A member of the RNA family "Y RNA" from Callithrix jacchus, 96 nucleotides long. Rfam 15.1 lists 26,986 matches to the family in 650 species.
RNA sequence: GGCUGGUCACAGUGCAUUUACAACUAAUUGAUAACGACCUGCUACAAACUUCUUUGUGACUUCUUCAGUUCCACUGCUUCAUUUGACUAGCCUGAA
Numbered sequence: 001g002g003c004u005g006g007u008c009a010c011a012g013u014g015c016a017u018u019u020a021c022a023a024c025u026a027a028u029u030g031a032u033a034a035c036g037a038c039c040u041g042c043u044a045c046a047a048a049c050u051u052c053u054u055u056g057u058g059a060c061u062u063c064u065u066c067a068g069u070u071c072c073a074c075u076g077c078u079u080c081a082u083u084u085g086a087c088u089a090g091c092c093u094g095a096a
Stems, first nucleotide, its partner, number of pairs: 001092008011075004016070001023057002026054002